[Rfam]
RNA sequence: CGGGUAGAGCAGGCAGUCGCGUUUACAAUCUUGUAAAUGAGGAAAGUCCGGGCUCCGCAGGGCAGGAUGCCGGAUAACGUCCGGCGUAGGUAACUAUAGGGAAAGUGCAACAGAAACAUUCCGCCGAAACGGGUAAUGCCGUGGUAAGGUUGAAAUGGUGAGGUAAGAGCUCACCGGCGGCAUGGAGACAUGUCGGCCGUGUAAACCCCAUCCGGAGCAAGACCAAACAGGGGAUAGAGGCAGUUGCCCGCUGCCUCCCGGAAGGUAGGUCGCUGGAGCUUGUCAGCAAUGGCAAGUCGAGAUAGAUGAUUGCUUAAUACAGAACCCGGCUUAUAGCUCUGCCCGAUUU
Numbered sequence: 001c002g003g004g005u006a007g008a009g010c011a012g013g014c015a016g017u018c019g020c021g022u023u024u025a026c027a028a029u030c031u032u033g034u035a036a037a038u039g040a041g042g043a044a045a046g047u048c049c050g051g052g053c054u055c056c057g058c059a060g061g062g063c064a065g066g067a068u069g070c071c072g073g074a075u076a077a078c079g080u081c082c083g084g085c086g087u088a089g090g091u092a093a094c095u096a097u098a099g100g101g102a103a104a105g106u107g108c109a110a111c112a113g114a115a116a117c118a119u120u121c122c123g124c125c126g127a128a129a130c131g132g133g134u135a136a137u138g139c140c141g142u143g144g145u146a147a148g149g150u151u152g153a154a155a156u157g158g159u160g161a162g163g164u165a166a167g168a169g170c171u172c173a174c175c176g177g178c179g180g181c182a183u184g185g186a187g188a189c190a191u192g193u194c195g196g197c198c199g200u201g202u203a204a205a206c207c208c209c210a211u212c213c214g215g216a217g218c219a220a221g222a223c224c225a226a227a228c229a230g231g232g233g234a235u236a237g238a239g240g241c242a243g244u245u246g247c248c249c250g251c252u253g254c255c256u257c258c259c260g261g262a263a264g265g266u267a268g269g270u271c272g273c274u275g276g277a278g279c280u281u282g283u284c285a286g287c288a289a290u291g292g293c294a295a296g297u298c299g300a301g302a303u304a305g306a307u308g309a310u311u312g313c314u315u316a317a318u319a320c321a322g323a324a325c326c327c328g329g330c331u332u333a334u335a336g337c338u339c340u341g342c343c344c345g346a347u348u349u
Stems, first nucleotide, its partner, number of pairs: 001345010011334001012314007020039008044332003048329005053217004060249004065213005070084005085099001086097004100208002105206002107202003121149002123145003129142004157175006177197001178195007221271004231259004240254005278297008